[Rfam]
RNA: ZMP/ZTP riboswitch aptamer (pfl RNA motif)
Organism: Microbacterium kyungheense
RNA sequence: UCGGAGGGUCGCGACUGGCGUUGAGGUGGGGCACCACCGGGGAGCGACCGACUACGGCAUUCGACCGCGCGCCUGGGCCGAUGCG
Numbered sequence: 001u002c003g004g005a006g007g008g009u010c011g012c013g014a015c016u017g018g019c020g021u022u023g024a025g026g027u028g029g030g031g032c033a034c035c036a037c038c039g040g041g042g043a044g045c046g047a048c049c050g051a052c053u054a055c056g057g058c059a060u061u062c063g064a065c066c067g068c069g070c071g072c073c074u075g076g077g078c079c080g081a082u083g084c085g
Stems, first nucleotide, its partner, number of pairs: 003053002007049006015041002017073005026037004062080002065077002